[Rfam]
RNA sequence: UAAAUAAACUAAAUAACUACCUGUAUAACUUCAAGAAUAUGGCUUGAGGGUCUCUACCAGGAACCAUAAAAUCCUGAUUACAGAAAAUGAAUUUAUUCGU
Numbered sequence: 001u002a003a004a005u006a007a008a009c010u011a012a013a014u015a016a017c018u019a020c021c022u023g024u025a026u027a028a029c030u031u032c033a034a035g036a037a038u039a040u041g042g043c044u045u046g047a048g049g050g051u052c053u054c055u056a057c058c059a060g061g062a063a064c065c066a067u068a069a070a071a072u073c074c075u076g077a078u079u080a081c082a083g084a085a086a087a088u089g090a091a092u093u094u095a096u097u098c099g100u
Stems, first nucleotide, its partner, number of pairs: 018086001021083005029049007058076005